The record is a 254-nucleotide RNA from Pseudomonas kuykendallii, which matches "Pseudomonas sRNA P24" in Rfam. NCBI's taxonomy places the organism under Bacteria, Pseudomonadota, Gammaproteobacteria, Pseudomonadaceae, Pseudomonas. Rfam classes the family as a non-coding RNA gene. About the family: This small RNA (sRNA) was computationally identified in the genome of the opportunistic pathogen Pseudomonas aeruginosa and its expression verified by Northern blot analysis. P24 is conserved across several Pseudomonas species and in Azotobacter vinelandii. It appears to be consistently located between a hypothetical protein gene and a transcriptional regulator gene (AsnC family) in the genomes of all these species. P24 has a predicted Rho independent terminator at the 3' end but the function of P24 is unknown. The literature on the family includes a 2006 paper in Nucleic Acids Res by Livny et al., "Identification of 17 Pseudomonas aeruginosa sRNAs and prediction of sRNA-encoding genes in 10 diverse pathogens using the bioinformatic tool sRNAPredict2".

[Rfam]
RNA sequence: UUGCGCAAGUAGUGGCGAAAUGGGCAAUUUUAGCAAUCACCUGUCGCCGCCGCGGGCGUACGCUUUACCUCAGUUUCAAGGCCCGGACGAAAUGUCCAUCCGGCCCGCUCAAUCAGGCGGGUUGGCGCCGACGGUCCCACCGGGCCGCUCUGGCACCCGGGUCCGCACUGCCCAACCAGGCGGGCGACGAAAGCGGCGAUAUCCUCGCCAGUACCGGACGCGCAGUAAAAGGGGGAAGACCGGACGGUCUUCCC
Numbered sequence: 001u002u003g004c005g006c007a008a009g010u011a012g013u014g015g016c017g018a019a020a021u022g023g024g025c026a027a028u029u030u031u032a033g034c035a036a037u038c039a040c041c042u043g044u045c046g047c048c049g050c051c052g053c054g055g056g057c058g059u060a061c062g063c064u065u066u067a068c069c070u071c072a073g074u075u076u077c078a079a080g081g082c083c084c085g086g087a088c089g090a091a092a093u094g095u096c097c098a099u100c101c102g103g104c105c106c107g108c109u110c111a112a113u114c115a116g117g118c119g120g121g122u123u124g125g126c127g128c129c130g131a132c133g134g135u136c137c138c139a140c141c142g143g144g145c146c147g148c149u150c151u152g153g154c155a156c157c158c159g160g161g162u163c164c165g166c167a168c169u170g171c172c173c174a175a176c177c178a179g180g181c182g183g184g185c186g187a188c189g190a191a192a193g194c195g196g197c198g199a200u201a202u203c204c205u206c207g208c209c210a211g212u213a214c215c216g217g218a219c220g221c222g223c224a225g226u227a228a229a230a231g232g233g234g235g236a237a238g239a240c241c242g243g244a245c246g247g248u249c250u251u252c253c254c
Stems, first nucleotide, its partner, number of pairs: 001012004043057003076190002080188001081162004085097004100125005107118003127154004133146005164186003168183005192212001195209005233254004238249004